[Rfam]
RNA sequence: UUAGCACUUUCACAGGUCCUCCUGUGGGCAGUGGGGCCAGGAUUUGGUAGCUGGUGCUGAAAGAAAACCCGUGAGUGCAUCCUUGCCCUGGGACUGUGCCAGUGGCAGCUGUCAAUGACACAGAAAGAA
Number, nucleotide and partner (000 for none) at each position: 001u000002u000003a058004g057005c056006a055007c054008u053009u000010u000011c000012a000013c046014a045015g044016g000017u042018c041019c040020u039021c000022c036023u035024g000025u033026g000027g000028g000029c000030a000031g000032u000033g025034g000035g023036g022037c000038c000039a020040g019041g018042a017043u000044u015045u014046g013047g000048u000049a000050g000051c000052u000053g008054g007055u006056g005057c004058u003059g000060a000061a000062a000063g000064a000065a000066a000067a000068c123069c000070c000071g119072u118073g000074a116075g000076u114077g113078c000079a112080u111081c000082c000083u108084u107085g106086c105087c104088c102089u101090g100091g099092g000093a000094c000095u000096g000097u000098g000099c091100c090101a089102g088103u000104g087105g086106c085107a084108g083109c000110u000111g080112u079113c077114a076115a000116u074117g000118a072119c071120a000121c000122a000123g068124a000125a000126a000127g000128a000129a000